The record is a 361-nucleotide part of an RNA from Denitrovibrio acetiphilus, which matches "Bacterial large subunit ribosomal RNA" in Rfam.
The organism belongs to Denitrovibrio acetiphilus, within Bacteria.
The base pairs follow the family's consensus structure, which is taken from published work.
On this family, see Cannone et al., BMC Bioinformatics 2002: "The comparative RNA web (CRW) site: an online database of comparative sequence and structure information for ribosomal, intron, and other RNAs".
[Rfam]
RNA sequence: CGAGAGAAUCAUGGUUAAGGAACUCGGCAAAAUGUCACCGUAACUUCGGGAUAAGGUGAGCUCCCAUUAUGUGUAACCCCUCGCGGGUGUAGCAGAACGGAGUCGCAGAGAAGAGGUCCAGGCGACUGUUUAUCAAAAACAUAGCACUCUGCCAACUGGUAACAGGAAGUAUAGGGUGUGACGCCUGCCCGGUGCUGGAAGGUUAAUAGGAGGUGUUAGCGCAAGCGAAGCUCCGAAUUGAAGCCCCAGUAAACGGCGGCCGUAACUAUAACGGUCCUAAGGUAGCGAAAUUCCUUGUCGGGUAAGUUCCGACCUGCACGAAUGGCGUAACGAUCUGGACGCUGUCUCAACCAUGAACUCG
Numbered sequence: 001c002g003a004g005a006g007a008a009u010c011a012u013g014g015u016u017a018a019g020g021a022a023c024u025c026g027g028c029a030a031a032a033u034g035u036c037a038c039c040g041u042a043a044c045u046u047c048g049g050g051a052u053a054a055g056g057u058g059a060g061c062u063c064c065c066a067u068u069a070u071g072u073g074u075a076a077c078c079c080c081u082c083g084c085g086g087g088u089g090u091a092g093c094a095g096a097a098c099g100g101a102g103u104c105g106c107a108g109a110g111a112a113g114a115g116g117u118c119c120a121g122g123c124g125a126c127u128g129u130u131u132a133u134c135a136a137a138a139a140c141a142u143a144g145c146a147c148u149c150u151g152c153c154a155a156c157u158g159g160u161a162a163c164a165g166g167a168a169g170u171a172u173a174g175g176g177u178g179u180g181a182c183g184c185c186u187g188c189c190c191g192g193u194g195c196u197g198g199a200a201g202g203u204u205a206a207u208a209g210g211a212g213g214u215g216u217u218a219g220c221g222c223a224a225g226c227g228a229a230g231c232u233c234c235g236a237a238u239u240g241a242a243g244c245c246c247c248a249g250u251a252a253a254c255g256g257c258g259g260c261c262g263u264a265a266c267u268a269u270a271a272c273g274g275u276c277c278u279a280a281g282g283u284a285g286c287g288a289a290a291u292u293c294c295u296u297g298u299c300g301g302g303u304a305a306g307u308u309c310c311g312a313c314c315u316g317c318a319c320g321a322a323u324g325g326c327g328u329a330a331c332g333a334u335c336u337g338g339a340c341g342c343u344g345u346c347u348c349a350a351c352c353a354u355g356a357a358c359u360c361g
Stems, first nucleotide, its partner, number of pairs: 001361004009356008018347003035059005044049001060103005075090001078087003104108001116340007123332002127141003144179008152169001156165003182327004187257003192254002194250005201245003208238001212234002215231002219226002258276006277281001287314001297313006
Dot-bracket structure: ((((....((((((((.(((..............(((((....(....).....)))))(((((..........(..(((....)))..)........)))))(...).......(((((((((..(((.........)))..(((((((((...(((....)))...)..))))))))..((((.(((..(((((((..(((....(...((.((..((....))...)).))...)....))))))))..)))))((((((.......))))))(...).....(.........((((((.....))))))).........))))...)).)))))))....))).)))))))).))))